RNA sequence: GGCCUCAAAUGAUGGAGAGAUGACCUGGGAGGACCAUGACCGAACUGGGAUGUAUUCGUACUGUCUGAUGAGGCC
Numbered sequence: 001g002g003c004c005u006c007a008a009a010u011g012a013u014g015g016a017g018a019g020a021u022g023a024c025c026u027g028g029g030a031g032g033a034c035c036a037u038g039a040c041c042g043a044a045c046u047g048g049g050a051u052g053u054a055u056u057c058g059u060a061c062u063g064u065c066u067g068a069u070g071a072g073g074c075c
Stems, first nucleotide, its partner, number of pairs: 001075007011065005019056004024049002027046002032041001
Dot-bracket structure: (((((((...(((((...((((.((.((...(........)...)).))...))))....)))))...)))))))
The family of this 75-nucleotide sequence from Sus scrofa is "Small nucleolar RNA ZL2". For this family Rfam cites "Insights into snoRNA biogenesis and processing from PAR-CLIP of snoRNA core proteins and small RNA sequencing" (Kishore et al., Genome Biol, 2013). The match comes from Rfam's covariance-model search (85 bits).